[Rfam]
RNA: L2-Alphaproteobacteria ribosomal protein leader
RNA sequence: GGUCACCUGCUCAUAUGCAGGGGGCUUUACUUUCCAGGGGAUGAUGUCGGGAAAACUCGGUGCAUCGCCUGAGCUAAACGGAAGACAGAAA
Numbered sequence: 001g002g003u004c005a006c007c008u009g010c011u012c013a014u015a016u017g018c019a020g021g022g023g024g025c026u027u028u029a030c031u032u033u034c035c036a037g038g039g040g041a042u043g044a045u046g047u048c049g050g051g052a053a054a055a056c057u058c059g060g061u062g063c064a065u066c067g068c069c070u071g072a073g074c075u076a077a078a079c080g081g082a083a084g085a086c087a088g089a090a091a
Stems, first nucleotide, its partner, number of pairs: 001026004006022003037066002040063001041061001048059004